[Rfam]
RNA sequence: AAGCGUACUCGAGACGGGUGCGUUGAACGACGGGCUUCAGCAGAAGUCAUAGUACUUGAUAGCUUAAGAUAUCAAGGAAGGAC
Numbered sequence: 001a002a003g004c005g006u007a008c009u010c011g012a013g014a015c016g017g018g019u020g021c022g023u024u025g026a027a028c029g030a031c032g033g034g035c036u037u038c039a040g041c042a043g044a045a046g047u048c049a050u051a052g053u054a055c056u057u058g059a060u061a062g063c064u065u066a067a068g069a070u071a072u073c074a075a076g077g078a079a080g081g082a083c
Stems, first nucleotide, its partner, number of pairs: 001024002004022007036045003046083003055076006

Source information:
The family of this 83-nucleotide sequence from Scopulibacillus darangshiensis is "Group II catalytic intron D1-D4-1".